[Rfam]
RNA: Y RNA-like
RNA sequence: GCCACGAAUGCCGGAGGAACUACAGCCUAUUACGCUCCAGGUCGCGGGUUCGAAUCCCGCCCGCCGCAAGGCGGUAGCUCAGUUGGUAGAGCAGGAUGUUCCUUCAAAACGUUGUCGUGGUUGU
Numbered sequence: 001g002c003c004a005c006g007a008a009u010g011c012c013g014g015a016g017g018a019a020c021u022a023c024a025g026c027c028u029a030u031u032a033c034g035c036u037c038c039a040g041g042u043c044g045c046g047g048g049u050u051c052g053a054a055u056c057c058c059g060c061c062c063g064c065c066g067c068a069a070g071g072c073g074g075u076a077g078c079u080c081a082g083u084u085g086g087u088a089g090a091g092c093a094g095g096a097u098g099u100u101c102c103u104u105c106a107a108a109a110c111g112u113u114g115u116c117g118u119g120g121u122u123g124u
Stems, first nucleotide, its partner, number of pairs: 002120006013105007038094001044060005051086001061074005077092004